[Rfam]
RNA sequence: UAAUCUGUUUAAGGUAAAUUUUCAUCUAGUUAUGGCAAAUUUACAUCUGAUUGCUUAAAAUUACUCGUUAUUGCAAGUUUGACUAUAUCAUUAACAUUGUGUAAACAAUAAUUUUUUAAAAUUUUAAUUGAAG
Numbered sequence: 001u002a003a004u005c006u007g008u009u010u011a012a013g014g015u016a017a018a019u020u021u022u023c024a025u026c027u028a029g030u031u032a033u034g035g036c037a038a039a040u041u042u043a044c045a046u047c048u049g050a051u052u053g054c055u056u057a058a059a060a061u062u063a064c065u066c067g068u069u070a071u072u073g074c075a076a077g078u079u080u081g082a083c084u085a086u087a088u089c090a091u092u093a094a095c096a097u098u099g100u101g102u103a104a105a106c107a108a109u110a111a112u113u114u115u116u117u118a119a120a121a122u123u124u125u126a127a128u129u130g131a132a133g
Stems, first nucleotide, its partner, number of pairs: 004132001006130002008127002012123001015120001018117001024112002027108001029106003
RNA: MIR480 microRNA precursor family